[Rfam]
The record is a 152-nucleotide RNA from Clytia hemisphaerica, which matches "U12 minor spliceosomal RNA" in Rfam. The pairing is the family consensus, mapped onto this sequence. The match comes from Rfam's covariance-model search (93 bits). The organism belongs to Clytia, within Eukaryota.

RNA sequence: UAGCCUUAAACUUAUGAGUAAGGAAAAUAAAUGCCUGGGUGACGCCGGGUAUAUGCAUUACUUAUGCAUUAAUAAUAUUUGGAGGGUGGCAGGCUGCCCUUGGGCUUGACUCGCCUACUUCUGCGAGUCGCCCUUGUUUAGGCGGCCUCCAU
Numbered sequence: 001u002a003g004c005c006u007u008a009a010a011c012u013u014a015u016g017a018g019u020a021a022g023g024a025a026a027a028u029a030a031a032u033g034c035c036u037g038g039g040u041g042a043c044g045c046c047g048g049g050u051a052u053a054u055g056c057a058u059u060a061c062u063u064a065u066g067c068a069u070u071a072a073u074a075a076u077a078u079u080u081g082g083a084g085g086g087u088g089g090c091a092g093g094c095u096g097c098c099c100u101u102g103g104g105c106u107u108g109a110c111u112c113g114c115c116u117a118c119u120u121c122u123g124c125g126a127g128u129c130g131c132c133c134u135u136g137u138u139u140a141g142g143c144g145g146c147c148u149c150c151a152u
Stems, first nucleotide, its partner, number of pairs: 004023005031052008053069005086152004091148007099136001102133004110127005